[Rfam]
RNA: c-di-AMP riboswitch aptamer (ydaO/yuaA leader)
Organism: Paenibacillus sp. Root444D2
RNA sequence: UUGAAUAUUUCGCUUAAUUUUCUUAUUAGAAAAGCGGGGGAACCACAAGUUUCAUGGGGUGAGUAAAGGUGCUUAAGUAUGGUACCAUUUAGGGCAGAUUCUCGCGGCCCGAACCCGACAGCUAACCUCGUAAGCGACCGUGGGAAGGAGA
Numbered sequence: 001u002u003g004a005a006u007a008u009u010u011c012g013c014u015u016a017a018u019u020u021u022c023u024u025a026u027u028a029g030a031a032a033a034g035c036g037g038g039g040g041a042a043c044c045a046c047a048a049g050u051u052u053c054a055u056g057g058g059g060u061g062a063g064u065a066a067a068g069g070u071g072c073u074u075a076a077g078u079a080u081g082g083u084a085c086c087a088u089u090u091a092g093g094g095c096a097g098a099u100u101c102u103c104g105c106g107g108c109c110c111g112a113a114c115c116c117g118a119c120a121g122c123u124a125a126c127c128u129c130g131u132a133a134g135c136g137a138c139c140g141u142g143g144g145a146a147g148g149a150g151a
Stems, first nucleotide, its partner, number of pairs: 011136004018033005034131006044056002057116003065089002068086006092110004